A member of the RNA family "ZMP/ZTP riboswitch aptamer (pfl RNA motif)" from Pseudactinotalea sp. HY158, 85 nucleotides long.

[Rfam]
RNA sequence: UGGCAUCAUCGCGACUGGCGCAGAGGUGGAUCACCACCGGGGAGCGAUGCCAAGGAGUUCGUGGUCGCCCGCCUGGGCCACGGAA
Numbered sequence: 001u002g003g004c005a006u007c008a009u010c011g012c013g014a015c016u017g018g019c020g021c022a023g024a025g026g027u028g029g030a031u032c033a034c035c036a037c038c039g040g041g042g043a044g045c046g047a048u049g050c051c052a053a054g055g056a057g058u059u060c061g062u063g064g065u066c067g068c069c070c071g072c073c074u075g076g077g078c079c080a081c082g083g084a085a
Stems, first nucleotide, its partner, number of pairs: 007049006015041002017073004026037004062080005
A search with the family's covariance model found it, with a score of 59 bits.
Gene Ontology terms of the family: regulation of purine nucleotide biosynthetic process and one-carbon metabolic process.
NCBI's taxonomy places the organism under Bacteria, Bacillati, Micrococcales, Cellulomonadaceae, Pseudactinotalea.